[Rfam]
The family of this 391-nucleotide RNA sequence from Eudromia elegans is "Vertebrate telomerase RNA".
RNA sequence: CCCACGUGGCGGGUGGGGAGGGCUCCGCUGUUUCUAACCCUAAAUGGCUGUCGCGGCGCUCCCCGCGCUCGUCCGCUGUUUUACUCGCUGACUUUCAGCGGGCGAGGGGAGCGGCCCCCCGUAGCGGGGGGGCGAGGGGGUAACUGGGAAGGGGUGCUAAGGGCAAGGGAUGGGGAGGGCAGCAACCAAAAAACGUCAGCGAGGGGUCUCUCUGCCGCCACGACCCGCCCUGGGGCUCCGCUCCCGCCGCGGCCAGGGAGGCUCCGGCCGCCGCGCCCUUGGGAAGAGGCCGCGGUCGGCCGGCUCGCGCCACUGCCGCCGCGAAGAGCUCGUCUCUGUCAGCCUCGGCGGCGGCCGGGAGCGCCGGGGCGCCCAGCAGAGCAAAACGGGA
Numbered sequence: 001c002c003c004a005c006g007u008g009g010c011g012g013g014u015g016g017g018g019a020g021g022g023c024u025c026c027g028c029u030g031u032u033u034c035u036a037a038c039c040c041u042a043a044a045u046g047g048c049u050g051u052c053g054c055g056g057c058g059c060u061c062c063c064c065g066c067g068c069u070c071g072u073c074c075g076c077u078g079u080u081u082u083a084c085u086c087g088c089u090g091a092c093u094u095u096c097a098g099c100g101g102g103c104g105a106g107g108g109g110a111g112c113g114g115c116c117c118c119c120c121g122u123a124g125c126g127g128g129g130g131g132g133c134g135a136g137g138g139g140g141u142a143a144c145u146g147g148g149a150a151g152g153g154g155u156g157c158u159a160a161g162g163g164c165a166a167g168g169g170a171u172g173g174g175g176a177g178g179g180c181a182g183c184a185a186c187c188a189a190a191a192a193a194c195g196u197c198a199g200c201g202a203g204g205g206g207u208c209u210c211u212c213u214g215c216c217g218c219c220a221c222g223a224c225c226c227g228c229c230c231u232g233g234g235g236c237u238c239c240g241c242u243c244c245c246g247c248c249g250c251g252g253c254c255a256g257g258g259a260g261g262c263u264c265c266g267g268c269c270g271c272c273g274c275g276c277c278c279u280u281g282g283g284a285a286g287a288g289g290c291c292g293c294g295g296u297c298g299g300c301c302g303g304c305u306c307g308c309g310c311c312a313c314u315g316c317c318g319c320c321g322c323g324a325a326g327a328g329c330u331c332g333u334c335u336c337u338g339u340c341a342g343c344c345u346c347g348g349c350g351g352c353g354g355c356c357g358g359g360a361g362c363g364c365c366g367g368g369g370c371g372c373c374c375a376g377c378a379g380a381g382c383a384a385a386a387c388g389g390g391a
Stems, first nucleotide, its partner, number of pairs: 005222008014214006021208005058112005070104009087200006093193003230376002233374004246370003250366004264358011291323005297318004302311003325337004

The literature on the family includes a 2000 paper in Cell by Chen et al., "Secondary structure of vertebrate telomerase RNA". Telomerase is a ribonucleoprotein reverse transcriptase that synthesises telomeric DNA. Telomerase RNAs differ greatly in sequence and structure between vertebrates, ciliates and yeasts, but they share a 5' pseudoknot structure close to the template sequence. Vertebrate telomerase RNAs have a 3' H/ACA snoRNA-like domain. The family's consensus secondary structure is taken from published work. The family's RNA type in Rfam is non-coding RNA gene.